The family of this 73-nucleotide RNA sequence is "L13-Bacteroidia ribosomal protein leader". A reference for the family is Eckert and Weinberg (2020), "Discovery of 20 novel ribosomal leader candidates in bacteria and archaea", BMC Microbiol.
RNA sequence: GGGGCACGCUUAGAGUCCCUUGCGCGUUGUGUUAAUAGCGAUGCCUUUGGCCGGACAUCGUGGUUAGUGAAUC
Numbered sequence: 001g002g003g004g005c006a007c008g009c010u011u012a013g014a015g016u017c018c019c020u021u022g023c024g025c026g027u028u029g030u031g032u033u034a035a036u037a038g039c040g041a042u043g044c045c046u047u048u049g050g051c052c053g054g055a056c057a058u059c060g061u062g063g064u065u066a067g068u069g070a071a072u073c
Stems, first nucleotide, its partner, number of pairs: 001019005032067005038061006045054002
The family's consensus secondary structure is taken from published work.